A member of the RNA family "ybhL leader" from Neorhizobium alkalisoli, 77 nucleotides long.
The source organism's lineage runs through Bacteria, Alphaproteobacteria, Hyphomicrobiales, Rhizobiaceae and Neorhizobium.
For this family Rfam cites "Evidence for a second class of S-adenosylmethionine riboswitches and other regulatory RNA motifs in alpha-proteobacteria" (Corbino et al., Genome Biol, 2005).
A search with the family's covariance model found it, with a score of 76 bits.
Gene Ontology term of the family: regulation of gene expression.

RNA sequence: CAGGCUUGCUGGAGCUCCGCAGCGGCGCCUGGGUCUGACCAAAGGGGGCCCGACACCGUAUUCAAUCCGGAGCUUAA
Number, nucleotide and partner (000 for none) at each position: 001c000002a000003g000004g000005c000006u000007u000008g000009c000010u000011g000012g075013a074014g073015c072016u071017c070018c069019g068020c000021a000022g000023c058024g057025g056026c000027g000028c000029c000030u052031g051032g050033g049034u000035c047036u000037g000038a000039c000040c000041a000042a000043a000044g000045g000046g000047g035048g000049c033050c032051c031052g030053a000054c000055a000056c025057c024058g023059u000060a000061u000062u000063c000064a000065a000066u000067c000068c019069g018070g017071a016072g015073c014074u013075u012076a000077a000
Notes:
This family is a putative regulatory RNA structure that is found upstream of an uncharacterized membrane protein in alpha-proteobacteria.